[Rfam]
RNA: Xanthomonadaceae sRNA asX1
Organism: Arenimonas composti
Nucleotides: 115
Base pairs, nucleotide, nucleotide: 003068004067005066006065007064008063009062010061011060012058013057016029017028018027019026020025031054032053033052034051035050036049038046039045076109077108078107079106080105081104082103083102084101085100086099087098088097089096090095
Number, partner (000 for none) and nucleotide at each position: 001000c002000a003068c004067c005066u006065g007064c008063c009062a010061c011060g012058g013057c014000c015000a016029a017028c018027g019026c020025c021000g022000g023000g024000g025020g026019g027018c028017g029016u030000c031054g032053a033052c034051c035050a036049g037000a038046c039045u040000g041000a042000a043000c044000a045039g046038g047000g048000g049036c050035u051034g052033g053032u054031c055000a056000g057013g058012c059000g060011c061010g062009u063008g064007g065006c066005a067004g068003g069000g070000u071000c072000g073000c074000c075000u076109g077108g078107g079106g080105c081104c082103g083102g084101c085100a086099a087098u088097u089096c090095c091000g092000g093000g094000g095090g096089g097088a098087a099086u100085u101084g102083c103082c104081g105080g106079c107078c108077c109076u110000u111000u112000u113000u114000u115000a